[Rfam]
RNA sequence: CGAUUGGAUAGAGGUGCAAAUGACAUCAGUAGUUUCAAACAAUGGGAGCAAUCAGUUUGAUUCGAAAGGGGAUUUUGCCGAAAUGAUAUUAGUAUUGCUCGACUGAUAUCGUUGGAAUACUUGUUAACAACAAGUGUUUUGUCAUUAUCAUAGGAUAAUGGAGUGCUAACCACAUU
Numbered sequence: 001c002g003a004u005u006g007g008a009u010a011g012a013g014g015u016g017c018a019a020a021u022g023a024c025a026u027c028a029g030u031a032g033u034u035u036c037a038a039a040c041a042a043u044g045g046g047a048g049c050a051a052u053c054a055g056u057u058u059g060a061u062u063c064g065a066a067a068g069g070g071g072a073u074u075u076u077g078c079c080g081a082a083a084u085g086a087u088a089u090u091a092g093u094a095u096u097g098c099u100c101g102a103c104u105g106a107u108a109u110c111g112u113u114g115g116a117a118u119a120c121u122u123g124u125u126a127a128c129a130a131c132a133a134g135u136g137u138u139u140u141g142u143c144a145u146u147a148u149c150a151u152a153g154g155a156u157a158a159u160g161g162a163g164u165g166c167u168a169a170c171c172a173c174a175u176u
Stems, first nucleotide, its partner, number of pairs: 006171002009168003016078005024070001032063001035060005082113012114140011142161007